[Rfam]
RNA: Bacillus sRNA ncr1575
Organism: Halalkalibacter nanhaiisediminis
RNA sequence: AAAUAUGAUAAUGAGAGGACUGAUGGAAGGACUAUGAUUAACUAAUCUAUAUUAUAAUUUGAAAUGAAUAUCUUCAAACUACAAAAUAUAGGGUUAGUCCAUCCAUUUUUAUAAAUCAGUUUAUUAUUUCAUUUGUCAUGAUUCCAAUGGCAAAAAGAACUUAUUUAUUAUAAUUAAAAGACUAAUCCUUCCAAUUACAAACUGGGAGGAUUUUUAU
Numbered sequence: 001a002a003a004u005a006u007g008a009u010a011a012u013g014a015g016a017g018g019a020c021u022g023a024u025g026g027a028a029g030g031a032c033u034a035u036g037a038u039u040a041a042c043u044a045a046u047c048u049a050u051a052u053u054a055u056a057a058u059u060u061g062a063a064a065u066g067a068a069u070a071u072c073u074u075c076a077a078a079c080u081a082c083a084a085a086a087u088a089u090a091g092g093g094u095u096a097g098u099c100c101a102u103c104c105a106u107u108u109u110u111a112u113a114a115a116u117c118a119g120u121u122u123a124u125u126a127u128u129u130c131a132u133u134u135g136u137c138a139u140g141a142u143u144c145c146a147a148u149g150g151c152a153a154a155a156a157g158a159a160c161u162u163a164u165u166u167a168u169u170a171u172a173a174u175u176a177a178a179a180g181a182c183u184a185a186u187c188c189u190u191c192c193a194a195u196u197a198c199a200a201a202c203u204g205g206g207a208g209g210a211u212u213u214u215u216a217u
Base pairs, nucleotide, nucleotide: 016110017109018108024105025104026103027102030099031098032097043096044095045094046093047092048091049089050088051087052086053085058078059077060076061075062074063073118166119165125158127156128155129154184212185211186210187209188208189207190206191205192204193203